[Rfam]
RNA sequence: UUGAUGCAGAGGGGAGACUUCGGACGUUCGAAACCGAUGAAGCAAUCCGCAGCCGCCGACUGUGGAGAAUCUUUCAGGUAAACAGACCCUUUGUGGAUG
Numbered sequence: 001u002u003g004a005u006g007c008a009g010a011g012g013g014g015a016g017a018c019u020u021c022g023g024a025c026g027u028u029c030g031a032a033a034c035c036g037a038u039g040a041a042g043c044a045a046u047c048c049g050c051a052g053c054c055g056c057c058g059a060c061u062g063u064g065g066a067g068a069a070u071c072u073u074u075c076a077g078g079u080a081a082a083c084a085g086a087c088c089c090u091u092u093g094u095g096g097a098u099g
Stems, first nucleotide, its partner, number of pairs: 006094008020031004033079003036075002040073003046066007
The family of this 99-nucleotide sequence from Anaerotignum lactatifermentans is "Glycine riboswitch aptamer". The organism belongs to Anaerotignum lactatifermentans, within Bacteria. Rfam's curators write: This family represents the bacterial glycine riboswitch. Its family is annotated with glycine biosynthetic process in the Gene Ontology.